[Rfam]
RNA sequence: GCUGAGGGAUGAUGACAAUAAAAGGCCGAAUUGCAGUGCCUCCAGCAAGCGGUUUGCUCUCCUUGGAAGCACCAUGACAAAAAUCUUCCUGAAGCGAAUCCUUAGUCUGACCUCAGU
Numbered sequence: 001g002c003u004g005a006g007g008g009a010u011g012a013u014g015a016c017a018a019u020a021a022a023a024g025g026c027c028g029a030a031u032u033g034c035a036g037u038g039c040c041u042c043c044a045g046c047a048a049g050c051g052g053u054u055u056g057c058u059c060u061c062c063u064u065g066g067a068a069g070c071a072c073c074a075u076g077a078c079a080a081a082a083a084u085c086u087u088c089c090u091g092a093a094g095c096g097a098a099u100c101c102u103u104a105g106u107c108u109g110a111c112c113u114c115a116g117u
Base pairs, nucleotide, nucleotide: 001117002116003115004114005113006112007111014107015106016105025034026033035103036102038100041097042096043094048090049089052072053071055069058066059065074087076085
Dot-bracket structure: (((((((......(((........((......))((.(..(((....((..((.(..((.....))..).)).(.(........).).))...).))..).)).)))...)))))))

Shown here is a 117-nucleotide sequence from Baryphthengus martii, a member of the family "Small nucleolar RNA SNORD89". Rfam's curators write: snoRNA HBII-289 belongs to the family of C/D snoRNAs. By type it is a C/D-box small nucleolar RNA. For this family Rfam cites "RNomics: an experimental approach that identifies 201 candidates for novel, small, non-messenger RNAs in mouse" (Huttenhofer et al., EMBO J, 2001). The family's consensus secondary structure was predicted with RNAalifold. The source organism's lineage runs through Eukaryota, Eumetazoa, Dinosauria, Coraciimorphae and Baryphthengus.